Shown here is a 600-nucleotide part of an RNA from an uncultured bacterium, a member of the family "Bacterial small subunit ribosomal RNA". The sequence is in the family's curated seed alignment.
RNA sequence: UGGCGGGGGCCCGCACAAGCGGUGGAGCAUGUGGUUUAAUUCGAUGGUACGCGAAGGACCUUACCUGGGCUUGAACGCACCACGACCGCCUGAGGAAACUCGGGCUUUCCCCUUCGGGGGACGGGGUGCGAGGUGCUGCAUGGCUGUCGUCAGCUCGUGCCGUGAGGUGUUGGGUUAAGUCCCGCAACGAGCGCAACCCCUGCCCGUAGUUGCCCGCCAGGGAACUCUACGGGGCCCGCUUCCGCAAGGGAGAGGAAGGAGGGGAUGACGUCAAGUCAUCAUGGCCCUUACGCCCAGGGCGACACACGUGCUACAAUGGGAGGGGACAGCGGGUAGCAACCGGGCGACCGGAAGCCAAUCCCUCAAACCCCCCCUCAGUUCAGAUUGGAGUCUGCAACUCGACUCCAUGAAGGCGGAAUCGCUAGUAAUCGCGGAUCAGCCAUGCCGCGGUGAAUACGUUCCCGGGCCUUGCACACACCGCCCGUCACGCCAUGGGAGCCGGGGGCACCCAAAGGCGCCUAACCCGCGCUCAAGGUGAACCCGGUGACUGGGGCGAAGUCGUAACAAGGUAGUCGUACCGGAAGGUGCGGCUGGAUCACC
Numbered sequence: 001u002g003g004c005g006g007g008g009g010c011c012c013g014c015a016c017a018a019g020c021g022g023u024g025g026a027g028c029a030u031g032u033g034g035u036u037u038a039a040u041u042c043g044a045u046g047g048u049a050c051g052c053g054a055a056g057g058a059c060c061u062u063a064c065c066u067g068g069g070c071u072u073g074a075a076c077g078c079a080c081c082a083c084g085a086c087c088g089c090c091u092g093a094g095g096a097a098a099c100u101c102g103g104g105c106u107u108u109c110c111c112c113u114u115c116g117g118g119g120g121a122c123g124g125g126g127u128g129c130g131a132g133g134u135g136c137u138g139c140a141u142g143g144c145u146g147u148c149g150u151c152a153g154c155u156c157g158u159g160c161c162g163u164g165a166g167g168u169g170u171u172g173g174g175u176u177a178a179g180u181c182c183c184g185c186a187a188c189g190a191g192c193g194c195a196a197c198c199c200c201u202g203c204c205c206g207u208a209g210u211u212g213c214c215c216g217c218c219a220g221g222g223a224a225c226u227c228u229a230c231g232g233g234g235c236c237c238g239c240u241u242c243c244g245c246a247a248g249g250g251a252g253a254g255g256a257a258g259g260a261g262g263g264g265a266u267g268a269c270g271u272c273a274a275g276u277c278a279u280c281a282u283g284g285c286c287c288u289u290a291c292g293c294c295c296a297g298g299g300c301g302a303c304a305c306a307c308g309u310g311c312u313a314c315a316a317u318g319g320g321a322g323g324g325g326a327c328a329g330c331g332g333g334u335a336g337c338a339a340c341c342g343g344g345c346g347a348c349c350g351g352a353a354g355c356c357a358a359u360c361c362c363u364c365a366a367a368c369c370c371c372c373c374c375u376c377a378g379u380u381c382a383g384a385u386u387g388g389a390g391u392c393u394g395c396a397a398c399u400c401g402a403c404u405c406c407a408u409g410a411a412g413g414c415g416g417a418a419u420c421g422c423u424a425g426u427a428a429u430c431g432c433g434g435a436u437c438a439g440c441c442a443u444g445c446c447g448c449g450g451u452g453a454a455u456a457c458g459u460u461c462c463c464g465g466g467c468c469u470u471g472c473a474c475a476c477a478c479c480g481c482c483c484g485u486c487a488c489g490c491c492a493u494g495g496g497a498g499c500c501g502g503g504g505g506c507a508c509c510c511a512a513a514g515g516c517g518c519c520u521a522a523c524c525c526g527c528g529c530u531c532a533a534g535g536u537g538a539a540c541c542c543g544g545u546g547a548c549u550g551g552g553g554c555g556a557a558g559u560c561g562u563a564a565c566a567a568g569g570u571a572g573u574c575g576u577a578c579c580g581g582a583a584g585g586u587g588c589g590g591c592u593g594g595a596u597c598a599c600c
Stems, first nucleotide, its partner, number of pairs: 001475002003472003007469007015459002019422005024314001026312008034303002040055004064298007076130003080126002083123002088105007109120004132287002135285004141281002143276003146272001148270002153192006159168003171184004198264004203233007213222002236255002239252005318374003322371004331362003336355002341350003381412001386407007428451007478568001480565001483561002488555004493550003498545006506537004514530005570593010